[Rfam]
RNA sequence: AAGCGUCACAUCUAGUUAGAGGAAAAGCGGGGGAACCAAGUUCUUUUAGAACACAGGGGCGCGUCUUCAGUGUAACUUUCUGAAGAGGGACAUCUCUCAGUCCUAGUCCGGCAGCUAACCUCGUCAGCAUCGAGAGAAGACUG
Dot-bracket structure: ..((......(.(..........).)((((((....(..................)(((.....((((((.........))))))..((((........))))...))).........))))))..))...............
The family of this 143-nucleotide RNA from Alkalinema sp. CACIAM 70d is "c-di-AMP riboswitch aptamer (ydaO/yuaA leader)". The match comes from Rfam's covariance-model search (50 bits).